[Rfam]
RNA sequence: GGAUGUGAGAGCAACCUGGCUGUGACCUCUGCCACCCCAUUGAUGGUCAGGGUUGAUUGGGCUGAUCUGGCUGGCUAGGCAGGUGUCCCCUUGCUCCCUCUCUGCUCCAUGUGUGUCCUUCCCGAAGCUAGGCGGUCACUCAAAGAGGAUGAGGGCUACCAUUCAUGGGUGAAGGGUAUGCGGUAGCUGCACUCCCCUUCUAGAAGCUCCAAACAAGCUCAAGGUGCAUUUGUAGGAGAAGCUGGCUGGGGUAGUCAAGCUUCCAAGACUGCAGACACAUGCAAGUGAGGCACUGCGUGGGGCAGGGUGUUUGUUGGU
Numbered sequence: 001g002g003a004u005g006u007g008a009g010a011g012c013a014a015c016c017u018g019g020c021u022g023u024g025a026c027c028u029c030u031g032c033c034a035c036c037c038c039a040u041u042g043a044u045g046g047u048c049a050g051g052g053u054u055g056a057u058u059g060g061g062c063u064g065a066u067c068u069g070g071c072u073g074g075c076u077a078g079g080c081a082g083g084u085g086u087c088c089c090c091u092u093g094c095u096c097c098c099u100c101u102c103u104g105c106u107c108c109a110u111g112u113g114u115g116u117c118c119u120u121c122c123c124g125a126a127g128c129u130a131g132g133c134g135g136u137c138a139c140u141c142a143a144a145g146a147g148g149a150u151g152a153g154g155g156c157u158a159c160c161a162u163u164c165a166u167g168g169g170u171g172a173a174g175g176g177u178a179u180g181c182g183g184u185a186g187c188u189g190c191a192c193u194c195c196c197c198u199u200c201u202a203g204a205a206g207c208u209c210c211a212a213a214c215a216a217g218c219u220c221a222a223g224g225u226g227c228a229u230u231u232g233u234a235g236g237a238g239a240a241g242c243u244g245g246c247u248g249g250g251g252u253a254g255u256c257a258a259g260c261u262u263c264c265a266a267g268a269c270u271g272c273a274g275a276c277a278c279a280u281g282c283a284a285g286u287g288a289g290g291c292a293c294u295g296c297g298u299g300g301g302g303c304a305g306g307g308u309g310u311u312u313g314u315u316g317g318u
Base pairs, nucleotide, nucleotide: 001108002107003106005102007100008099009098011096014092018090019089024087025086026085028083029082030081031080032079033078035074036073037070038069039068042067043066044065046062047061048060116154117153118151120149121148124137125136128134140147186260187259188258192254193253195251196250197249198248199245200244207238208237209236210235213233214232215231216230217229283318288312289311290310291309293305294304295303296302
The family of this 318-nucleotide sequence from Caloenas nicobarica is "7SK RNA". The base pairs follow the family's consensus structure, which is taken from published work. The literature on the family includes a 2002 paper in Curr Biol by Blencowe, "Transcription: surprising role for an elusive small nuclear RNA".